The record is a 67-nucleotide RNA sequence from Lentihominibacter hominis, which matches "isrJ Hfq binding RNA" in Rfam. Taxonomically the source falls in Lentihominibacter (Bacteria, Bacillota, Peptostreptococcales, Anaerovoracaceae). For this family Rfam cites "Small RNAs encoded within genetic islands of Salmonella typhimurium show host-induced expression and role in virulence" (Padalon-Brauch et al., Nucleic Acids Res, 2008). The family's consensus secondary structure was predicted with RNAalifold.

[Rfam]
RNA sequence: AGUAGAUCAGAAUAUCGGUGUAAUAUUCAUCUAAAUACCUCAGGACCCCGCCGUAAGGCGGGGUCUU
Numbered sequence: 001a002g003u004a005g006a007u008c009a010g011a012a013u014a015u016c017g018g019u020g021u022a023a024u025a026u027u028c029a030u031c032u033a034a035a036u037a038c039c040u041c042a043g044g045a046c047c048c049c050g051c052c053g054u055a056a057g058g059c060g061g062g063g064u065c066u067u
Stems, first nucleotide, its partner, number of pairs: 017031004022026001043066010
The match comes from Rfam's covariance-model search (38 bits). Rfam classes the family as a small RNA.